RNA sequence: CAAAUACCCCGUGUACAUGAACUUAUAAGACGAGUACAACGUAUGGUACAUCACAUGUAUCUUAUUAGUUUUUAAGUACCUCGUGUACAUAGACUUAUGAGACGAGUACAUCGUAUGGUACAU
Number, nucleotide and partner (000 for none) at each position: 001c000002a000003a000004a000005u120006a119007c118008c117009c000010c113011g112012u110013g109014u108015a107016c106017a000018u104019g103020a000021a000022c101023u100024u099025a098026u097027a096028a095029g094030a000031c092032g000033a000034g088035u087036a086037c085038a084039a000040c083041g082042u000043a000044u000045g080046g079047u078048a077049c076050a000051u000052c000053a000054c000055a070056u000057g000058u067059a066060u000061c000062u000063u000064a000065u000066u059067a058068g000069u000070u055071u000072u000073u000074a000075a000076g049077u048078a047079c046080c045081u000082c041083g040084u038085g037086u036087a035088c034089a000090u000091a000092g031093a000094c029095u028096u027097a026098u025099g024100a023101g022102a000103c019104g018105a000106g016107u015108a014109c013110a012111u000112c011113g010114u000115a000116u000117g008118g007119u006120a005121c000122a000123u000
MIR7784 microRNA precursor family: a 123-nucleotide RNA sequence from Brachypodium distachyon. It is one of the family's seed sequences. The organism belongs to Brachypodium, within Eukaryota. Pairs were carried over by alignment from the consensus structure, which was predicted with RNAalifold.